[Rfam]
RNA sequence: ACCGACAGGAUCUUGGCGAUAUAGGGGAUCAGCGGCAGGUUCAGGAUCAGCAGGACCAGAUUGCCGAUGAACAUCGACAUGAUCACCGCCCAGAAGAUCUCCGGCGCGUCGAUCAUCAACCGCGGCCC
Numbered sequence: 001a002c003c004g005a006c007a008g009g010a011u012c013u014u015g016g017c018g019a020u021a022u023a024g025g026g027g028a029u030c031a032g033c034g035g036c037a038g039g040u041u042c043a044g045g046a047u048c049a050g051c052a053g054g055a056c057c058a059g060a061u062u063g064c065c066g067a068u069g070a071a072c073a074u075c076g077a078c079a080u081g082a083u084c085a086c087c088g089c090c091c092a093g094a095a096g097a098u099c100u101c102c103g104g105c106g107c108g109u110c111g112a113u114c115a116u117c118a119a120c121c122g123c124g125g126c127c128c
Stems, first nucleotide, its partner, number of pairs: 003018002006015003026128002029125002033122003038114003043109001045107001048104001050102001052100003057096001061093003073083003

Ruegeria cis8 sRNA: a 128-nucleotide sequence from Dinoroseobacter shibae. A reference for the family is Rivers et al. (2016), "Experimental Identification of Small Non-Coding RNAs in the Model Marine Bacterium Ruegeria pomeroyi DSS-3", Front Microbiol. Lineage of the source: Bacteria > Pseudomonadota > Alphaproteobacteria > Dinoroseobacter > Dinoroseobacter shibae.